[Rfam]
RNA sequence: AAUCUUCUUCCGAGCAGAGAAUCGCCCCUAGUGACCCACCACAGUAGUGUGAGGUGACUAGAGCCAAUUCUCUUCUUGGUUGCAAGGUG
Numbered sequence: 001a002a003u004c005u006u007c008u009u010c011c012g013a014g015c016a017g018a019g020a021a022u023c024g025c026c027c028c029u030a031g032u033g034a035c036c037c038a039c040c041a042c043a044g045u046a047g048u049g050u051g052a053g054g055u056g057a058c059u060a061g062a063g064c065c066a067a068u069u070c071u072c073u074u075c076u077u078g079g080u081u082g083c084a085a086g087g088u089g
Base pairs, nucleotide, nucleotide: 002088003087004086005085006084010079011078012077013076014075016073017072018071019070020069021068028061029060030059031058032057034055035054036053037051038050039049041048042047
Overview:
The record is an 89-nucleotide RNA from Caenorhabditis remanei, which matches "mir-247 microRNA precursor family" in Rfam. Rfam 15.1 lists 3 matches to the family in 3 species. NCBI's taxonomy places the organism under Eukaryota, Opisthokonta, Bilateria, Nematoda, Caenorhabditis. Rfam links the family to the GO terms RISC complex and miRNA-mediated post-transcriptional gene silencing. The base pairs follow the family's consensus structure, which was predicted with RNAalifold.